[Rfam]
RNA sequence: CACACGUGAGGCAUGGGAUGUUCCGGGAGAAAUCCGGAUCGUUCCGCCGGUGGGUUUUUCGAAAGAAGAGCUCGACGUCUCGCGGAGGUUCAACCGGAAAAGGAGAAAAGGC
Number, nucleotide and partner (000 for none) at each position: 001c087002a000003c085004a000005c084006g083007u082008g081009a080010g079011g078012c000013a000014u000015g045016g044017g000018a000019u000020g000021u000022u000023c036024c000025g000026g034027g000028a000029g000030a000031a000032a000033u000034c026035c000036g023037g000038a000039u000040c000041g000042u000043u000044c016045c015046g000047c000048c000049g000050g000051u000052g000053g072054g071055u070056u069057u068058u067059u066060c065061g000062a000063a000064a000065g060066a059067a058068g057069a056070g055071c054072u053073c000074g000075a000076c000077g000078u011079c010080u009081c008082g007083c006084g005085g003086a000087g001088g000089u000090u000091c000092a000093a000094c000095c000096g000097g000098a000099a000100a000101a000102g000103g000104a000105g000106a000107a000108a000109a000110g000111g000112c000